Rfam assigns this 83-nucleotide RNA sequence from Fukomys damarensis to the family "mir-770 microRNA precursor family". It scores 84 bits against the family's covariance model. Lineage of the source: Eukaryota > Deuterostomia > Craniata > Theria > Fukomys. Gene Ontology terms of the family: RISC complex and miRNA-mediated post-transcriptional gene silencing. Pairs were carried over by alignment from the consensus structure, which was predicted with RNAalifold.
RNA sequence: CCUUCUGUGCCCCCAGCCCCACGUGUCUGGGUCACGUGAGCGGGGCCAUGUGGGCCUAAUGUGGGGCUAGGGCCACAGGGGUC
Numbered sequence: 001c002c003u004u005c006u007g008u009g010c011c012c013c014c015a016g017c018c019c020c021a022c023g024u025g026u027c028u029g030g031g032u033c034a035c036g037u038g039a040g041c042g043g044g045g046c047c048a049u050g051u052g053g054g055c056c057u058a059a060u061g062u063g064g065g066g067c068u069a070g071g072g073c074c075a076c077a078g079g080g081g082u083c
Stems, first nucleotide, its partner, number of pairs: 004080003007076003011072003015068008025060002029057005035052004040046002